[Rfam]
RNA: mir-133 microRNA precursor family
RNA sequence: UUGCUCUGGCUGGUCAAAAGGAACCAAGGCCGUCUCUCCUGGAGGUUUGGUCCCCUUCAACCAGCUAUAGCAG
Numbered sequence: 001u002u003g004c005u006c007u008g009g010c011u012g013g014u015c016a017a018a019a020g021g022a023a024c025c026a027a028g029g030c031c032g033u034c035u036c037u038c039c040u041g042g043a044g045g046u047u048u049g050g051u052c053c054c055c056u057u058c059a060a061c062c063a064g065c066u067a068u069a070g071c072a073g
Stems, first nucleotide, its partner, number of pairs: 003071003008066007017057002020053003024050005030044001